[Rfam]
RNA sequence: AAUAGUUUUAUGCCACAUCAGCAUUUUCAUUCUGAGUUUCAGCAUUUUUUAUCUUGAAAAAAAUCAAAUCCAAAUGAAAAUCUUGAAAUUCAGGAUGAAAUUGCUGAUAUAGCAUAAAACUAUU
Numbered sequence: 001a002a003u004a005g006u007u008u009u010a011u012g013c014c015a016c017a018u019c020a021g022c023a024u025u026u027u028c029a030u031u032c033u034g035a036g037u038u039u040c041a042g043c044a045u046u047u048u049u050u051a052u053c054u055u056g057a058a059a060a061a062a063a064u065c066a067a068a069u070c071c072a073a074a075u076g077a078a079a080a081u082c083u084u085g086a087a088a089u090u091c092a093g094g095a096u097g098a099a100a101u102u103g104c105u106g107a108u109a110u111a112g113c114a115u116a117a118a119a120c121u122a123u124u
Base pairs, nucleotide, nucleotide: 001124002123003122004121005120006119007118008117009116010115011114012113013112015110017108018107019106020105021104022103023101024100026099027098029096030095031094032093033092034091035090036089037088038087039086041084042083045080046079047078048077

A member of the RNA family "MIR7504 microRNA precursor family" from Gossypium australe, 124 nucleotides long. It scores 106 bits against the family's covariance model.